[Rfam]
RNA sequence: CCCAGGGCUCACGCCCCGGGCUGUAGGAUGUCGCGCCUUCAGCGCU
Numbered sequence: 001c002c003c004a005g006g007g008c009u010c011a012c013g014c015c016c017c018g019g020g021c022u023g024u025a026g027g028a029u030g031u032c033g034c035g036c037c038u039u040c041a042g043c044g045c046u
Base pairs, nucleotide, nucleotide: 001020002019003018005016006015007014008013033045034044035043036042
Acido-Lenti-1 RNA: a 46-nucleotide RNA sequence from Fimbriimonas ginsengisoli. Taxonomically the source falls in Fimbriimonas ginsengisoli (Bacteria, Armatimonadota, Fimbriimonadia, Fimbriimonas). Rfam classes the family as a small RNA. It scores 56 bits against the family's covariance model.